[Rfam]
RNA sequence: AGCAGAGUAAAUAUUGUGCGUAAAGUGUUAGAGGAUGGGAAGUUGCCUCUAAACGAAAAGCUCGGUUUUGAAGCUUACGAUGCAAUGUUGCUUCCACUGUU
Number, nucleotide and partner (000 for none) at each position: 001a101002g100003c099004a098005g097006a000007g000008u000009a000010a089011a088012u087013a086014u085015u084016g083017u082018g081019c079020g078021u077022a000023a000024a000025g054026u053027g000028u052029u051030a050031g049032a048033g047034g046035a000036u000037g000038g095039g094040a093041a092042g091043u000044u000045g000046c034047c033048u032049c031050u030051a029052a028053a026054c025055g000056a000057a000058a076059a075060g074061c073062u000063c000064g000065g000066u000067u000068u000069u000070g000071a000072a000073g061074c060075u059076u058077a021078c020079g019080a000081u018082g017083c016084a015085a014086u013087g012088u011089u010090g000091c042092u041093u040094c039095c038096a000097c005098u004099g003100u002101u001